About this RNA: Shown here is a 168-nucleotide sequence from Spermophilus dauricus, a member of the family "Interferon gamma 5' UTR regulatory element". About the family: This family represents a pseudoknot containing stem-loop structure found in the 5' UTR of interferon (IFN) gamma mRNA. This structure is thought to be involved in translational regulation and the pseudoknot has been found to activate PKR which is known to be a translational inhibitor. The family's consensus secondary structure is taken from published work.

[Rfam]
RNA sequence: UAUUGUUCUGAUCAUCUCAGAUCAGCUAUUAGGAAAGAAAGACCAGCCAAGUCCUUUGGAGCUGAUCAGAUUAAUACAGGAGCUACUGAUUUCAACGUCUUUGGCCUAACUCUCUCUGAAAUGAUGAAAUACACAAGUUAUUUCUUGGCUUUUCAGCUCUGCAUCAUU
Number, nucleotide and partner (000 for none) at each position: 001u000002a000003u000004u000005g000006u000007u000008c069009u068010g067011a066012u065013c064014a063015u119016c118017u000018c000019a113020g112021a111022u000023c000024a000025g105026c104027u103028a102029u000030u000031a100032g099033g098034a000035a000036a000037g000038a000039a000040a092041g091042a090043c000044c088045a087046g086047c000048c000049a000050a084051g083052u082053c000054c000055u080056u079057u078058g077059g000060a000061g000062c000063u014064g013065a012066u011067c010068a009069g008070a000071u000072u000073a000074a000075u000076a000077c058078a057079g056080g055081a000082g052083c051084u050085a000086c046087u045088g044089a000090u042091u041092u040093c000094a000095a000096c000097g000098u033099c032100u031101u000102u028103g027104g026105c025106c000107u000108a000109a000110c000111u021112c020113u019114c000115u000116c000117u000118g016119a015120a168121a167122u166123g165124a164125u163126g162127a000128a000129a143130u000131a141132c000133a139134c000135a000136a000137g000138u000139u133140a000141u131142u000143u129144c000145u000146u000147g158148g157149c156150u155151u000152u000153u000154c000155a150156g149157c148158u147159c000160u000161g000162c126163a125164u124165c123166a122167u121168u120

Background:
Rfam 15.1 lists 135 matches to the family in 125 species. Lineage of the source: Eukaryota > Craniata > Sciuridae > Marmotini > Spermophilus.